[Rfam]
RNA sequence: AGGCAAGCACUACCCGUGUGAAGAAAGCCGGCGGCAAAAGAUUGGAGCUUAUGAACAAGAAAACCUUACGAGGCUGGCAGUAUCCUCUACAAGUCAGCAAAUAAGACCAGUAGUGAUCCAGUGCCUACAUUUUAUGUUAAAGAACUGUUGGUAAAAGGUUAGGUUUCAAUUGGAGGAGUGGGGC
Numbered sequence: 001a002g003g004c005a006a007g008c009a010c011u012a013c014c015c016g017u018g019u020g021a022a023g024a025a026a027g028c029c030g031g032c033g034g035c036a037a038a039a040g041a042u043u044g045g046a047g048c049u050u051a052u053g054a055a056c057a058a059g060a061a062a063a064c065c066u067u068a069c070g071a072g073g074c075u076g077g078c079a080g081u082a083u084c085c086u087c088u089a090c091a092a093g094u095c096a097g098c099a100a101a102u103a104a105g106a107c108c109a110g111u112a113g114u115g116a117u118c119c120a121g122u123g124c125c126u127a128c129a130u131u132u133u134a135u136g137u138u139a140a141a142g143a144a145c146u147g148u149u150g151g152u153a154a155a156a157g158g159u160u161a162g163g164u165u166u167c168a169a170u171u172g173g174a175g176g177a178g179u180g181g182g183g184c
Stems, first nucleotide, its partner, number of pairs: 001011002027184003035176001040171011062160006073152003077148005083142001089122002093117004
RNA: Group II catalytic intron D1-D4-3